[Rfam]
RNA sequence: UCAGAAUGAAAAUGAUCUCAGGUUUAACAGUGAUCUGGGGUCAGAUAACUGAGCCCAAAGUAUAUGGUACGUUUAGCUUAUCACCCGUUUGCUUGUUAGCGGUGCGAUAAAACCCAUGUGCCUACAGAU
Numbered sequence: 001u002c003a004g005a006a007u008g009a010a011a012a013u014g015a016u017c018u019c020a021g022g023u024u025u026a027a028c029a030g031u032g033a034u035c036u037g038g039g040g041u042c043a044g045a046u047a048a049c050u051g052a053g054c055c056c057a058a059a060g061u062a063u064a065u066g067g068u069a070c071g072u073u074u075a076g077c078u079u080a081u082c083a084c085c086c087g088u089u090u091g092c093u094u095g096u097u098a099g100c101g102g103u104g105c106g107a108u109a110a111a112a113c114c115c116a117u118g119u120g121c122c123u124a125c126a127g128a129u
Stems, first nucleotide, its partner, number of pairs: 008049001010046001013043004021035004066122001068120005078110005086101003
Dot-bracket structure: .......(.(..((((....((((.......))))....))))..)..)................(.(((((.....(((((...(((..........)))....))))).....))))).).......
Shown here is a 129-nucleotide RNA sequence from Channa argus, a member of the family "Small nucleolar RNA ACA64".
The organism belongs to Channa, within Eukaryota.
By type it is an H/ACA-box small nucleolar RNA.
Rfam 15.1 lists 9,537 matches to the family in 620 species.
Rfam links the family to the GO terms RNA processing and nucleolus.